RNA sequence: GAUUGUUAAGGGCAAACUUGCCGAAAGGCAAGGAUGCAAAGCCAUAGGGCCUAAGAUGCGUAAGCAUGAUGAUAGCAUGGCCGCCGCG
Number, nucleotide and partner (000 for none) at each position: 001g000002a000003u000004u000005g000006u000007u000008a000009a000010g000011g000012g037013c036014a000015a000016a000017c032018u031019u030020g029021c028022c027023g000024a000025a000026a000027g022028g021029c020030a019031a018032g017033g000034a000035u000036g013037c012038a000039a000040a000041g081042c080043c079044a000045u000046a078047g000048g076049g073050c000051c071052u000053a000054a000055g000056a067057u066058g065059c064060g000061u000062a000063a000064g059065c058066a057067u056068g000069a000070u000071g051072a000073u049074a000075g000076c048077a000078u046079g043080g042081c041082c000083g000084c000085c000086g000087c000088g000
c-di-GMP-I riboswitch aptamer: an 88-nucleotide sequence from Ruminococcaceae bacterium BL-4. The family's consensus secondary structure is taken from published work. Taxonomically the source falls in Oscillospiraceae (Bacteria, Bacillati, Bacillota, Clostridia). A search with the family's covariance model found it, with a score of 66 bits. On this family, see Weinberg et al., Nucleic Acids Res 2007: "Identification of 22 candidate structured RNAs in bacteria using the CMfinder comparative genomics pipeline".